The family of this 125-nucleotide sequence from Caenorhabditis briggsae is "Caenorhabditis snoRNA ceN48". Taxonomically the source falls in Caenorhabditis (Eukaryota, Ecdysozoa, Rhabditina, Rhabditomorpha). Rfam classes the family as an H/ACA-box small nucleolar RNA. The sequence is in the family's curated seed alignment. Rfam links the family to the GO terms RNA processing and nucleolus.
[Rfam]
RNA sequence: CCGCACGCUGAAAGUCGAGUGAGCCUGCUCCAAAGGCUCUUUCGUUGAUUAUGUGUGCCAGAACAACGCCAUAGGUAUCAUUCUUCGUCUUCUUAGGCGCGGAACAUCUAAAUAUGGCUACAGUU
Numbered sequence: 001c002c003g004c005a006c007g008c009u010g011a012a013a014g015u016c017g018a019g020u021g022a023g024c025c026u027g028c029u030c031c032a033a034a035g036g037c038u039c040u041u042u043c044g045u046u047g048a049u050u051a052u053g054u055g056u057g058c059c060a061g062a063a064c065a066a067c068g069c070c071a072u073a074g075g076u077a078u079c080a081u082u083c084u085u086c087g088u089c090u091u092c093u094u095a096g097g098c099g100c101g102g103a104a105c106a107u108c109u110a111a112a113u114a115u116g117g118c119u120a121c122a123g124u125u
Base pairs, nucleotide, nucleotide: 003058004057005056006055007054008053016044017043018042019041022038023037024036025035068118069117070116071115072114073113076110077109081104082103083102084101086099087098088097089096090095